Rfam assigns this 120-nucleotide RNA from Streptomyces dysideae to the family "Group II catalytic intron D1-D4-2".
Rfam links the family to the GO term Group II intron splicing.
On this family, see Chu et al., EMBO J 2001: "Control of branch-site choice by a group II intron".
From the family's description: Group II introns are found in rRNA, tRNA and mRNA of organelles in fungi, plants and protists, and also in mRNA in bacteria.
[Rfam]
RNA sequence: GAAGGAAUUAUGACCCUUCGGCAUCGCCCUGCGGGGGGAGGUGCCAAACCGCCUCGUGCUGCGUUAGCUAGCGACUGUCGUGGUGAGCGAUGAGGAAAAGGUGUCCAAGAGGCGUCAGGU
Numbered sequence: 001g002a003a004g005g006a007a008u009u010a011u012g013a014c015c016c017u018u019c020g021g022c023a024u025c026g027c028c029c030u031g032c033g034g035g036g037g038g039a040g041g042u043g044c045c046a047a048a049c050c051g052c053c054u055c056g057u058g059c060u061g062c063g064u065u066a067g068c069u070a071g072c073g074a075c076u077g078u079c080g081u082g083g084u085g086a087g088c089g090a091u092g093a094g095g096a097a098a099a100g101g102u103g104u105c106c107a108a109g110a111g112g113c114g115u116c117a118g119g120u
Stems, first nucleotide, its partner, number of pairs: 001019005020045006027038004050119001052095006058084002061081003065077003100116006